Small nucleolar RNA sn3071: a 72-nucleotide RNA from Caenorhabditis auriculariae. The organism belongs to Caenorhabditis, within Eukaryota. Pairs were carried over by alignment from the consensus structure, which was predicted with WAR. Rfam 15.1 lists 32 matches to the family in 27 species. Gene Ontology terms of the family: RNA processing and nucleolus. On this family, see Deng et al., Genome Res 2006: "Organization of the Caenorhabditis elegans small non-coding transcriptome: genomic features, biogenesis, and expression". It scores 67 bits against the family's covariance model.
RNA sequence: GAUCGGUGAUGAGAUUUUCACGACGGUCUGCCGAUAUUAUCACAGCUGUGGAAAAAUCGUGAAACUGAGAUC
Numbered sequence: 001g002a003u004c005g006g007u008g009a010u011g012a013g014a015u016u017u018u019c020a021c022g023a024c025g026g027u028c029u030g031c032c033g034a035u036a037u038u039a040u041c042a043c044a045g046c047u048g049u050g051g052a053a054a055a056a057u058c059g060u061g062a063a064a065c066u067g068a069g070a071u072c
Base pairs, nucleotide, nucleotide: 001072002071003070004069